Glycine riboswitch aptamer: a 112-nucleotide sequence from Streptomycetaceae bacterium MP113-05. The match comes from Rfam's covariance-model search (65 bits). About the family: This family represents the bacterial glycine riboswitch. Glycine riboswitches usually consist of two metabolite-binding aptamers domains with similar structures in tandem. The aptamers cooperatively bind glycine to regulate the expression of downstream genes. In Bacillus subtilis, this riboswitch is found upstream of the gcvT operon which controls glycine degradation.

[Rfam]
Nucleotides: 112
Stems, first nucleotide, its partner, number of pairs: 006107001008105006020054004056092003059088002063086003069079002
Number, partner (000 for none) and nucleotide at each position: 001000u002000g003000a004000a005000u006107c007000c008105g009104c010103g011102c012101g013100g014000g015000a016000g017000a018000g019000u020054u021053c022052c023051c024000g025000u026000c027000c028000g029000a030000g031000g032000c033000c034000c035000a036000c037000c038000g039000g040000g041000u042000c043000c044000a045000c046000g047000g048000a049000c050000c051023g052022g053021g054020a055000c056092g057091c058090c059088g060087a061000a062000g063086g064085a065084g066000c067000a068000a069079g070078a071000u072000c073000c074000u075000c076000c077000c078070u079069u080000u081000a082000a083000u084065c085064u086063c087060u088059c089000a090058g091057g092056c093000c094000c095000c096000g097000a098000u099000a100013c101012c102011g103010c104009g105008c106000a107006g108000g109000a110000c111000g112000a
The base pairs follow the family's consensus structure.
NCBI's taxonomy places the organism under Bacteria, Bacillati, Actinomycetes, Kitasatosporales, Streptomycetaceae.